RNA sequence: CGCCUAAACCCAUAAAUCUUGGGCAUGGCGCAAAAACCUUUCACAGAUAUUAAGCUCGUCGUCAGAGCAUCUGUGAAAGGUCAUAUCUCGAAAGGGGUAUGGGUGGUCGCAAGGCCAUC
Number, nucleotide and partner (000 for none) at each position: 001c030002g029003c028004c027005u000006a000007a000008a000009c023010c022011c021012a020013u000014a000015a000016a000017u000018c000019u000020u012021g011022g010023g009024c000025a000026u000027g004028g003029c002030g001031c000032a000033a000034a000035a000036a000037c080038c079039u078040u077041u076042c075043a074044c073045a072046g071047a070048u000049a000050u000051u000052a000053a000054g068055c067056u066057c065058g000059u000060c000061g000062u000063c000064a000065g057066a056067g055068c054069a000070u047071c046072u045073g044074u043075g042076a041077a040078a039079g038080g037081u000082c101083a100084u099085a098086u097087c096088u095089c094090g000091a000092a000093a000094g089095g088096g087097g086098u085099a084100u083101g082102g119103g118104u117105g116106g115107u114108c000109g000110c000111a000112a000113g000114g107115c106116c105117a104118u103119c102
LOOT RNA: a 119-nucleotide RNA. It is one of the family's seed sequences. Rfam classes the family as a small RNA.